[Rfam]
RNA sequence: GCCGCACCUCCUUUACUUGGAUCGUCCGGCACGUUCCUGCCGGUGAAGGGAUUUAUUU
Numbered sequence: 001g002c003c004g005c006a007c008c009u010c011c012u013u014u015a016c017u018u019g020g021a022u023c024g025u026c027c028g029g030c031a032c033g034u035u036c037c038u039g040c041c042g043g044u045g046a047a048g049g050g051a052u053u054u055a056u057u058u
Stems, first nucleotide, its partner, number of pairs: 009050007026043006
RNA: msiK RNA
Organism: Antrihabitans stalagmiti